Rfam assigns this 95-nucleotide RNA from Jaculus jaculus to the family "mir-3473 microRNA precursor family". The source organism's lineage runs through Eukaryota, Deuterostomia, Tetrapoda, Amniota and Jaculus.
RNA sequence: ACUGCUAAGCCAUCUCUCCAGCCCGAACUUGAUUUUUUUUAAAUAAAUUAAAUUUUAAAAAAUUUAAAAAGGGGCUGGAGAGAUGGCUUAGUGGU
Numbered sequence: 001a002c003u004g005c006u007a008a009g010c011c012a013u014c015u016c017u018c019c020a021g022c023c024c025g026a027a028c029u030u031g032a033u034u035u036u037u038u039u040u041a042a043a044u045a046a047a048u049u050a051a052a053u054u055u056u057a058a059a060a061a062a063u064u065u066a067a068a069a070a071g072g073g074g075c076u077g078g079a080g081a082g083a084u085g086g087c088u089u090a091g092u093g094g095u
Stems, first nucleotide, its partner, number of pairs: 002094023